Rfam assigns this 577-nucleotide part of an RNA from Drosophila willistoni to the family "Microsporidia small subunit ribosomal RNA".
The family's consensus secondary structure is taken from published work.

Nucleotides: 577
Stems, first nucleotide, its partner, number of pairs: 001576003011443004018436003088429002090426003095421001098419001100417001103414002105396002110391001114387003404411002448489006462478004500572003503565003508546002511543006552559002
Number, partner (000 for none) and nucleotide at each position: 001576c002575g003574g004000u005000u006000a007000a008000a009000a010000c011443g012442u013441u014440c015000g016000u017000a018436g019435u020434u021000g022000a023000a024000c025000u026000u027000g028000u029000g030000c031000u032000u033000u034000a035000u036000a037000c038000g039000g040000g041000u042000a043000g044000u045000a046000c047000a048000a049000c050000a051000u052000a053000c054000a055000u056000u057000u058000g059000u060000a061000g062000u063000u064000a065000g066000u067000a068000c069000u070000a071000u072000a073000u074000a075000c076000c077000u078000u079000u080000a081000u082000g083000u084000a085000u086000g087000u088429a089428a090426g091425c092424g093000u094000a095421u096000u097000a098419u099000c100417g101000g102000u103414g104413g105396a106395g107000u108000u109000c110391u111000u112000a113000u114387a115386u116385g117000u118000a119000a120000u121000u122000a123000a124000g125000u126000a127000c128000u129000u130000g131000u132000a133000c134000u135000u136000u137000u138000u139000u140000a141000u142000a143000u144000a145000u146000u147000c148000c149000u150000c151000c152000u153000a154000u155000u156000u157000a158000a159000a160000a161000a162000c163000c164000u165000a166000c167000a168000u169000u170000a171000g172000u173000g174000c175000u176000c177000u178000u179000a180000a181000u182000c183000g184000a185000g186000u187000g188000u189000u190000u191000u192000u193000g194000u195000g196000g197000g198000c199000c200000g201000g202000u203000a204000c205000a206000a207000u208000u209000a210000c211000u212000u213000u214000g215000a216000a217000a218000g219000a220000u221000u222000u223000a224000g225000a226000g227000u228000g229000c230000u231000u232000a233000a234000a235000g236000c237000a238000g239000g240000c241000u242000u243000c244000a245000a246000a247000u248000g249000c250000c251000u252000g253000a254000a255000u256000a257000u258000u259000c260000u261000g262000u263000g264000c265000a266000u267000g268000g269000g270000a271000u272000a273000a274000u275000g276000a277000a278000a279000u280000a281000a282000g283000a284000c285000c286000u287000c288000u289000g290000u291000u292000c293000u294000g295000c296000u297000u298000u299000c300000a301000u302000u303000g304000g305000u306000u307000u308000u309000c310000a311000g312000u313000u314000c315000a316000a317000g318000a319000g320000g321000u322000a323000a324000u325000a326000a327000u328000u329000a330000a331000u332000a333000g334000a335000a336000g337000c338000a339000g340000u341000u342000u343000g344000g345000g346000c347000g348000c349000a350000u351000u352000a353000g354000u355000a356000u357000u358000a359000c360000g361000a362000c363000u364000c365000g366000a367000g368000a369000g370000g371000u372000g373000a374000a375000a376000u377000u378000c379000u380000u381000g382000g383000a384000c385116c386115g387114u388000c389000g390000u391110a392000a393000g394000a395106c396105u397000a398000a399000c400000u401000u402000a403000a404411g405410c406000g407000a408000a409000a410405g411404c412000c413104u414103u415000u416000g417100c418000a419098a420000a421095a422000g423000u424092u425091g426090u427000u428089u429088u430000c431000a432000u433000u434020a435019a436018u437000c438000a439000a440014g441013a442012a443011c444000g445000a446000a447000a448489g449488u450487u451486a452485g453484a454000g455000g456000u457000u458000c459000g460000a461000a462478g463477g464476c465475g466000a467000u468000c469000a470000g471000a472000u473000a474000c475465c476464g477463c478462c479000c480000u481000a482000c483000u484453u485452c486451u487450a488449a489448c490000c491000a492000u493000a494000a495000a496000c497000g498000a499000u500572g501571c502570c503565a504564g505563c506000u507000u508546g509545c510000a511543a512542u513541u514540g515539g516538g517000u518000g519000a520000a521000u522000c523000u524000a525000c526000u527000u528000u529000u530000a531000u532000g533000g534000c535000u536000c537000u538516c539515u540514c541513a542512g543511u544000c545509g546508c547000u548000u549000c550000c551000c552559g553558g554000g555000a556000a557000a558553c559552c560000a561000a562000a563505g564504c565503u566000u567000u568000u569000g570502g571501g572500c573000u574003c575002c576001g577000g

Its family is annotated with ribosome and structural constituent of ribosome in the Gene Ontology. Its Rfam clan is "SSU clan".